[Rfam]
RNA: Plastid-psbM 3UTR RNA
Nucleotides: 074
Base pairs, nucleotide, nucleotide: 006049007048008047009046010045011044012043013042014041015040016039017038018037019036020035021034023032
Number, partner (000 for none) and nucleotide at each position: 001000a002000a003000c004000u005000u006049g007048a008047u009046a010045g011044u012043a013042u014041g015040g016039u017038a018037g019036a020035a021034a022000a023032a024000a025000a026000u027000a028000u029000g030000a031000a032023u033000c034021u035020u036019u037018c038017u039016a040015c041014c042013a043012u044011a045010c046009u047008a048007u049006c050000u051000a052000u053000a054000u055000c056000u057000a058000u059000u060000a061000u062000u063000g064000u065000a066000a067000u068000g069000u070000a071000g072000a073000a074000a